[Rfam]
RNA sequence: UACGUUCAUCCUCAGGGACGGAAGUAGCACAAAGCGAAGGAACGCACU
Number, nucleotide and partner (000 for none) at each position: 001u000002a000003c044004g043005u042006u041007c040008a000009u018010c017011c016012u000013c000014a000015g000016g011017g010018a009019c000020g000021g045022a000023a000024g000025u000026a000027g035028c034029a000030c000031a000032a000033a000034g028035c027036g000037a000038a000039g000040g007041a006042a005043c004044g003045c021046a000047c000048u000
RNA: Glutamine riboswitch aptamer (glnA leader)